The record is a 134-nucleotide RNA sequence from Clostridium sp. CAG:1024, which matches "Ribosomal protein L20 leader" in Rfam. From the family's description: This family is a putative r-protein leader autoregulatory structure found in B. subtilis and other low-GC Gram-positive bacteria. A search with the family's covariance model found it, with a score of 59 bits.
RNA sequence: GAAGUCAAGCAGAGGCCACCCGCUUCUCACCUGCCAGCGAUUGCUGCUCGGCAUGGUUGCAAUCACCGAUAGCGUAUCAUGUGUUUGUUUGGUUUGUGGGUGCAAAGUGCUUGCGCCCACUAUUUUUUAUGGAG
Dot-bracket structure: ..........((((((.....)))))).(((..((.((.......))..))...)))......................................(((((((((.......)))))))))..............